Rfam assigns this 279-nucleotide RNA from Streptomyces sp. SID7982 to the family "Streptomyces sRNA 4677". The match comes from Rfam's covariance-model search (95 bits). The base pairs follow the family's consensus structure. The family has 12 seed sequences and 563 matches in Rfam 15.1. The literature on the family includes a 2014 paper in PLoS One by Hindra et al., "Complex intra-operonic dynamics mediated by a small RNA in Streptomyces coelicolor". Located in the intergenic region between anti-sigma factor SCO4677 gene and a putative regulatory protein gene SCO4676. scr4677 expression requires the SCO4677 activity and scr4677 sRNA itself seem to affect the levels of the SCO4676-associated transcripts. Rfam classes the family as a small RNA. Taxonomically the source falls in Streptomyces (Bacteria, Bacillati, Kitasatosporales, Streptomycetaceae).
RNA sequence: CGACCCGGUGACCCACGACGUAAAAGCUUUUAAGUACCUGUCUUUGAUCACUGGAGAAAUAACCCAACCCACCCCCCCCGGAGUGGACCUCUGCGGGCCCUGGUCAGCUCGGGCGAGGCGCGAUCACUCACAUGGGUGAAGUGUGCCAACCGGGCUGGAUUCAUGACCUGUUGGCGGGCAUAUGCUCACGCUGACCACCACACCAGACAUGAGACGGCCCCCGGCCGGGACUGGCAUCCCGACCGAAGGCCUCACCACCCAGGAAGAGAACGCUUCCCG
Numbered sequence: 001c002g003a004c005c006c007g008g009u010g011a012c013c014c015a016c017g018a019c020g021u022a023a024a025a026g027c028u029u030u031u032a033a034g035u036a037c038c039u040g041u042c043u044u045u046g047a048u049c050a051c052u053g054g055a056g057a058a059a060u061a062a063c064c065c066a067a068c069c070c071a072c073c074c075c076c077c078c079c080g081g082a083g084u085g086g087a088c089c090u091c092u093g094c095g096g097g098c099c100c101u102g103g104u105c106a107g108c109u110c111g112g113g114c115g116a117g118g119c120g121c122g123a124u125c126a127c128u129c130a131c132a133u134g135g136g137u138g139a140a141g142u143g144u145g146c147c148a149a150c151c152g153g154g155c156u157g158g159a160u161u162c163a164u165g166a167c168c169u170g171u172u173g174g175c176g177g178g179c180a181u182a183u184g185c186u187c188a189c190g191c192u193g194a195c196c197a198c199c200a201c202a203c204c205a206g207a208c209a210u211g212a213g214a215c216g217g218c219c220c221c222c223g224g225c226c227g228g229g230a231c232u233g234g235c236a237u238c239c240c241g242a243c244c245g246a247a248g249g250c251c252u253c254a255c256c257a258c259c260c261a262g263g264a265a266g267a268g269a270a271c272g273c274u275u276c277c278c279g
Stems, first nucleotide, its partner, number of pairs: 007259004016111003020108001124139006154189001156188003216251004222245003227240004262277005
Dot-bracket structure: ......((((.....(((.(.......................................................................................))))............((((((....))))))..............(.(((...........................))))..........................((((..(((..((((......))))..)))..))))....))))..(((((......)))))..